[Rfam]
RNA sequence: CCGGUUCCGGUUCACACCCCAAGGCAAAUUCGCCCGGGUGACCCGGCGACC
Numbered sequence: 001c002c003g004g005u006u007c008c009g010g011u012u013c014a015c016a017c018c019c020c021a022a023g024g025c026a027a028a029u030u031c032g033c034c035c036g037g038g039u040g041a042c043c044c045g046g047c048g049a050c051c
Stems, first nucleotide, its partner, number of pairs: 003051003007046004015040005023034003
The family of this 51-nucleotide RNA sequence from Gordonia araii is "L31-Actinobacteria ribosomal protein leader". The source organism's lineage runs through Bacteria, Actinomycetota, Gordoniaceae, Gordonia and Gordonia araii. By type it is a cis-regulatory leader. It is one of the family's seed sequences.